This 85-nucleotide sequence from Scleropages formosus belongs to the Rfam family "mir-187 microRNA precursor family".
RNA sequence: CUGGGGGGGCCAGGGGCUGCAACACAGGACAUGGGAGCUCCGCCCCCCACCACCUCGUGUCUUGUGUUGCAGCCAGUGGAACCGU
Dot-bracket structure: ..........((..((((.(((((((((((.((((..................)))).))))))))))).))))..)).......

The family's consensus secondary structure was predicted with RNAalifold.